[Rfam]
RNA: terC RNA
Organism: Rhodovarius crocodyli
RNA sequence: CCCCCCGUCCGGGCCCCUCUGGCGACCCCUCCUUCAGCGAGGGCGAUCGUGAUGUCGGACAGAACAA
Dot-bracket structure: ......((((((.........((((.(.(((.........))).).))))....)))))).......